[Rfam]
RNA sequence: ACUAGAACUCAAGAUAUGGGCUAAACAUUGAACAGUAUCUGGGGUGCAGGACAGAUUCAGACUUCUCCGUUGGUGCUACAAUUUGGACUUGAAAACGGUCUUUUUGAAUCUUGAACUCCCAUGAAAGUUCUAGGCCUAUGUCUUAGCUUUCCAUC
Number, nucleotide and partner (000 for none) at each position: 001a000002c000003u153004a000005g151006a150007a149008c146009u145010c000011a144012a143013g142014a141015u140016a139017u138018g137019g136020g135021c133022u132023a131024a000025a129026c000027a128028u127029u126030g000031a000032a000033c000034a000035g122036u121037a000038u000039c000040u000041g119042g118043g117044g000045u115046g000047c000048a112049g111050g110051a109052c000053a000054g105055a104056u000057u000058c000059a000060g099061a000062c098063u097064u000065c000066u000067c000068c000069g000070u000071u000072g088073g000074u086075g000076c000077u000078a000079c000080a000081a000082u000083u000084u000085g000086g074087a000088c072089u000090u000091g000092a000093a000094a000095a000096c000097g063098g062099u060100c000101u000102u000103u000104u055105u054106g000107a000108a000109u051110c050111u049112u048113g000114a000115a045116c000117u043118c042119c041120c000121a036122u035123g000124a000125a000126a029127g028128u027129u025130c000131u023132a022133g021134g000135c020136c019137u018138a017139u016140g015141u014142c013143u012144u011145a009146g008147c000148u000149u007150u006151c005152c000153a003154u000155c000